Shown here is a 78-nucleotide sequence from Eragrostis curvula, a member of the family "Small nucleolar RNA R160".
Lineage of the source: Eukaryota > Spermatophyta > commelinids > Poales > Eragrostis.
The literature on the family includes a 2003 paper in Nucleic Acids Res by Chen et al., "The high diversity of snoRNAs in plants: identification and comparative study of 120 snoRNA genes from Oryza sativa".
snoR160 is a C/D box small nucleolar RNA, which acts as a methylation guide for 25S ribosomal RNA in plants. snoR160 has been alternatively named snoZ270 in rice.
The family has 9 seed sequences and 799 matches in Rfam 15.1.
[Rfam]
RNA sequence: AGCAAAAUGAGGAAGCUAUACCAUCUGAAGCUUUGGUGUUGAUAAUAUCUGGAUGGUCUUCAAAGUUCUCUGAUUGUU
Numbered sequence: 001a002g003c004a005a006a007a008u009g010a011g012g013a014a015g016c017u018a019u020a021c022c023a024u025c026u027g028a029a030g031c032u033u034u035g036g037u038g039u040u041g042a043u044a045a046u047a048u049c050u051g052g053a054u055g056g057u058c059u060u061c062a063a064a065g066u067u068c069u070c071u072g073a074u075u076g077u078u
Stems, first nucleotide, its partner, number of pairs: 001078005